Source information:
The record is an 82-nucleotide sequence from Triticum turgidum, which matches "MIR1120/MIR1122 microRNA precursor family" in Rfam. Rfam links the family to the GO terms RISC complex and miRNA-mediated post-transcriptional gene silencing. Pairs were carried over by alignment from the consensus structure, which was predicted with RNAalifold. The literature on the family includes a 2007 paper in Genome Biol by Yao et al., "Cloning and characterization of microRNAs from wheat (Triticum aestivum L.)". The match comes from Rfam's covariance-model search (88 bits). NCBI's taxonomy places the organism under Eukaryota, Streptophyta, Liliopsida, Triticodae, Triticum turgidum.
RNA sequence: GUACUCCCUCCGUCCCAUAGUGUAAGACGUCUUUUGACCCUAGGGUCGAAAGACGUCUUACAUUAUGGGACGGAGGGAGUAU
Numbered sequence: 001g002u003a004c005u006c007c008c009u010c011c012g013u014c015c016c017a018u019a020g021u022g023u024a025a026g027a028c029g030u031c032u033u034u035u036g037a038c039c040c041u042a043g044g045g046u047c048g049a050a051a052g053a054c055g056u057c058u059u060a061c062a063u064u065a066u067g068g069g070a071c072g073g074a075g076g077g078a079g080u081a082u
Base pairs, nucleotide, nucleotide: 003080004079005078007076008075009074010073011072013070014069015068016067017066019064020063021062022061023060024059025058026057027056028055029054030053031052032051033050034049035048036047037046038045039044
Dot-bracket structure: ..(((.(((((.(((((.(((((((((((((((((((((....))))))))))))))))))))).))))).))))).)))..